The record is a 54-nucleotide sequence, which matches "nhaA-I RNA" in Rfam. By type it is a riboswitch.

Nucleotides: 054
Stems, first nucleotide, its partner, number of pairs: 005022007035054002038051004
Number, partner (000 for none) and nucleotide at each position: 001000g002000g003000g004000u005022u006021c007020g008019g009018a010017g011016a012000a013000g014000c015000g016011u017010c018009u019008c020007c021006g022005a023000a024000g025000g026000g027000g028000a029000a030000c031000a032000g033000a034000g035054a036053g037000u038051u039050g040049g041048u042000c043000g044000g045000g046000c047000c048041g049040c050039c051038a052000u053036c054035u
From the family's description: Acidobacteria, Alphaproteobacteria, Betaproteobacteria and Gammaproteobacteria, Verrucomicrobia, cand. division NC10.